The family of this 68-nucleotide RNA is "Xanthine riboswitch aptamer (NMT1 RNA)".
Gene Ontology term of the family: purine nucleobase binding.
The literature on the family includes a 2020 paper in RNA by Yu and Breaker, "A bacterial riboswitch class senses xanthine and uric acid to regulate genes associated with purine oxidation".
[Rfam]
RNA sequence: GCCGAGAGUAGAAGCGUUCAGCGGCAGAUGCACCAUCGAAAGUGCGCCGCCCGGAAAUUGCUCUUGCA
Numbered sequence: 001g002c003c004g005a006g007a008g009u010a011g012a013a014g015c016g017u018u019c020a021g022c023g024g025c026a027g028a029u030g031c032a033c034c035a036u037c038g039a040a041a042g043u044g045c046g047c048c049g050c051c052c053g054g055a056a057a058u059u060g061c062u063c064u065u066g067c068a
Base pairs, nucleotide, nucleotide: 005064006063007062008061009060010059015053018055019054021050022049023048024047025046
Dot-bracket structure: ....((((((....[..((.(((((....................)))))..]))...))))))....